[Rfam]
RNA sequence: GGGGAGAGGCCAGAUCCUGGGCUGUGUCCCCGAUGUCCUGUGCUCCCAGGCCUGCGCUGUUGGAUUCAAGCUCCCGGCCGCGCUGCCCCUU
Numbered sequence: 001g002g003g004g005a006g007a008g009g010c011c012a013g014a015u016c017c018u019g020g021g022c023u024g025u026g027u028c029c030c031c032g033a034u035g036u037c038c039u040g041u042g043c044u045c046c047c048a049g050g051c052c053u054g055c056g057c058u059g060u061u062g063g064a065u066u067c068a069a070g071c072u073c074c075c076g077g078c079c080g081c082g083c084u085g086c087c088c089c090u091u
Stems, first nucleotide, its partner, number of pairs: 001091004006086001009083002011080001013078001016077002019074003023070001025068002027064002030062001031059002034056003040052001042051003
The family of this 91-nucleotide sequence from Nyctereutes procyonoides is "mir-8799 microRNA precursor family". The family is grouped with related families in Rfam's "mir-8791 microRNA precursor clan". Pairs were carried over by alignment from the consensus structure, which was predicted with RNAalifold. Taxonomically the source falls in Nyctereutes (Eukaryota, Deuterostomia, Sarcopterygii, Eutheria). Its family is annotated with RISC complex and miRNA-mediated post-transcriptional gene silencing in the Gene Ontology. The match comes from Rfam's covariance-model search (72 bits).